[Rfam]
RNA: FMN riboswitch aptamer (RFN element)
RNA sequence: GCGCGCUGGCGGGGUCGGUGAAAUUCCGAACCGGCGGUAACGGAGCAUCGACUCCGCGAGCCCGCGACCCGAUCGCCUCCAGUGAUCGGUUGACCCGGUGAGAUUCCGGGGCCGACGGUCAAAGUCCGGAUGGUAGUUGGCGCGC
Dot-bracket structure: ..((((((((.....(((.......))).[[((((((......................[[))))...((.................))....(((((.......)))))]])).(((.....]]))).......))))))))..